Shown here is a 79-nucleotide RNA from Drosophila grimshawi, a member of the family "mir-11 microRNA precursor family". Rfam 15.1 lists 138 matches to the family in 136 species. Taxonomically the source falls in Hawaiian Drosophila (Eukaryota, Mandibulata, Muscomorpha, Drosophila). Rfam links the family to the GO terms negative regulation of apoptotic process, cellular response to gamma radiation and miRNA-mediated post-transcriptional gene silencing.
RNA sequence: CACUCGUCAAGAACUCUCUCUGUGACUUGCGUGAACUUUCAUGUGAAAAUCGCAUCACAGUCUGAGUUCUUGCUGAGCG
Numbered sequence: 001c002a003c004u005c006g007u008c009a010a011g012a013a014c015u016c017u018c019u020c021u022g023u024g025a026c027u028u029g030c031g032u033g034a035a036c037u038u039u040c041a042u043g044u045g046a047a048a049a050u051c052g053c054a055u056c057a058c059a060g061u062c063u064g065a066g067u068u069c070u071u072g073c074u075g076a077g078c079g
Base pairs, nucleotide, nucleotide: 003077004076005075008072009071010070011069012068013067014066015065016064020060021059022058023057024056025055029053030052031051